Rfam assigns this 124-nucleotide sequence from Populus trichocarpa to the family "MIR475 microRNA precursor family". The sequence is in the family's curated seed alignment. The family's consensus secondary structure was predicted with RNAalifold. The family has 5 seed sequences and 38 matches in Rfam 15.1. Gene Ontology terms of the family: RISC complex and miRNA-mediated post-transcriptional gene silencing.
RNA sequence: CAUCUUGAUCAAUGGCCAUUGUAAGAGUAGAAGGAUCCAUGAAGCAAUAAUUCUCUUUGCUAAAAUGUGUGAUAAAACAUUGACUCCUGGUAUUUCACUCUUACAGUGCCCAUUGAUUAAGAUG
Dot-bracket structure: (((((((((((((((.((((((((((((.((((.(((...((..((((..............................))))..))..))).)))))))))))))))).)))))))))))))))